[Rfam]
RNA sequence: GCCGCGGGACGACCCGUGGCCGCAUCCCAUCCGGCAGGACGACCUGC
Number, nucleotide and partner (000 for none) at each position: 001g020002c019003c018004g017005c016006g015007g014008g013009a000010c000011g000012a000013c008014c007015c006016g005017u004018g003019g002020c001021c000022g000023c000024a000025u000026c000027c000028c000029a000030u000031c000032c000033g000034g047035c046036a045037g044038g043039a000040c000041g000042a000043c038044c037045u036046g035047c034
This 47-nucleotide RNA sequence from Cupriavidus yeoncheonensis belongs to the Rfam family "Guanidine-II riboswitch aptamer (mini-ykkC)". NCBI's taxonomy places the organism under Bacteria, Pseudomonadota, Burkholderiales, Burkholderiaceae, Cupriavidus. The family's consensus secondary structure is taken from published work. Rfam describes the family as follows. Simpler in structure and has fewer highly conserved nucleotide positions than the ykkC-yxkD leader. Despite this each of its two stem-loop structures directly bind free guanidine.